[Rfam]
RNA sequence: AAAGUUCGAUACAGGAAAGGAAUAGCGAACCACCCUGGCCCCGAGUCAUGCGGCGGCACCCGCGAGGGUGCAGCCGAAGCGUUGACAGGGGAGAGUGCAGGCCAGCCAUUGAGCCGCGAAAUCAUUCUGUCUGGAGCGCCGACGCUGUUGAUCGAAGCGGAAGGCAACAUCGUCGAGGGCGCUAAACGCGAGUUCUCGGCGGGCUCCACGCGGUCGAAGACCC
Numbered sequence: 001a002a003a004g005u006u007c008g009a010u011a012c013a014g015g016a017a018a019g020g021a022a023u024a025g026c027g028a029a030c031c032a033c034c035c036u037g038g039c040c041c042c043g044a045g046u047c048a049u050g051c052g053g054c055g056g057c058a059c060c061c062g063c064g065a066g067g068g069u070g071c072a073g074c075c076g077a078a079g080c081g082u083u084g085a086c087a088g089g090g091g092a093g094a095g096u097g098c099a100g101g102c103c104a105g106c107c108a109u110u111g112a113g114c115c116g117c118g119a120a121a122u123c124a125u126u127c128u129g130u131c132u133g134g135a136g137c138g139c140c141g142a143c144g145c146u147g148u149u150g151a152u153c154g155a156a157g158c159g160g161a162a163g164g165c166a167a168c169a170u171c172g173u174c175g176a177g178g179g180c181g182c183u184a185a186a187c188g189c190g191a192g193u194u195c196u197c198g199g200c201g202g203g204c205u206c207c208a209c210g211c212g213g214u215c216g217a218a219g220a221c222c223c
Stems, first nucleotide, its partner, number of pairs: 012037004019031002023191001025189002039091004045086004049081002051076004056071006110217001111215001113214006132208006138165003143159004170202011
Overview:
The record is a 223-nucleotide RNA sequence from Cupriavidus taiwanensis, which matches "Group II catalytic intron D1-D4-6" in Rfam. The source organism's lineage runs through Bacteria, Pseudomonadati, Betaproteobacteria, Burkholderiales and Cupriavidus. From the family's description: Group II introns are found in rRNA, tRNA and mRNA of organelles in fungi, plants and protists, and also in mRNA in bacteria. Rfam links the family to the GO term Group II intron splicing. The base pairs follow the family's consensus structure. The literature on the family includes a 2001 paper in Trends Genet by Bonen and Vogel, "The ins and outs of group II introns".